[Rfam]
RNA sequence: AGCUGGUGUAAUCUCAGCUGGCAACUGUGAGCAGUUAGCGAACCCUCUCACAGUGGUAUCUGGGAUUAUGCUAAAC
Numbered sequence: 001a002g003c004u005g006g007u008g009u010a011a012u013c014u015c016a017g018c019u020g021g022c023a024a025c026u027g028u029g030a031g032c033a034g035u036u037a038g039c040g041a042a043c044c045c046u047c048u049c050a051c052a053g054u055g056g057u058a059u060c061u062g063g064g065a066u067u068a069u070g071c072u073a074a075a076c
Stems, first nucleotide, its partner, number of pairs: 004073004009068009021057002023054001026052006
Dot-bracket structure: ...((((.(((((((((...(((..((((((...............)))))).).))..))))))))).))))...

Shown here is a 76-nucleotide RNA sequence from Podarcis lilfordi, a member of the family "mir-216 microRNA precursor family".
On this family, see Shao et al., Gene 2008: "Identification of novel chicken microRNAs and analysis of their genomic organization".
NCBI's taxonomy places the organism under Eukaryota, Metazoa, Vertebrata, Bifurcata, Podarcis.